[Rfam]
RNA sequence: GGGAUAUGAGGAGUGGAUGGAUCUCGCGAAUUUAAUGCGAGUGGAGUGUCCUCCCUAAAGCCUGGUUACGACAACCUGGGCACUCUUCGAACUUCCAAUCUGAUCCC
Numbered sequence: 001g002g003g004a005u006a007u008g009a010g011g012a013g014u015g016g017a018u019g020g021a022u023c024u025c026g027c028g029a030a031u032u033u034a035a036u037g038c039g040a041g042u043g044g045a046g047u048g049u050c051c052u053c054c055c056u057a058a059a060g061c062c063u064g065g066u067u068a069c070g071a072c073a074a075c076c077u078g079g080g081c082a083c084u085c086u087u088c089g090a091a092c093u094u095c096c097a098a099u100c101u102g103a104u105c106c107c
Stems, first nucleotide, its partner, number of pairs: 001107004014098001016096001023041005043086008062078001065075002

This 107-nucleotide RNA sequence from Abrus precatorius belongs to the Rfam family "Small nucleolar RNA Z279/snoR105/snoR108". For this family Rfam cites "Experimental RNomics: identification of 140 candidates for small non-messenger RNAs in the plant Arabidopsis thaliana" (Marker et al., Curr Biol, 2002). NCBI's taxonomy places the organism under Eukaryota, Streptophytina, Mesangiospermae, Pentapetalae, Abrus. The match comes from Rfam's covariance-model search (85 bits). Gene Ontology terms of the family: RNA processing and nucleolus. The family has 20 seed sequences and 906 matches in Rfam 15.1. Rfam describes the family as follows. This family includes the plant snoRNAs known as Z279, snoR105 and snoR108.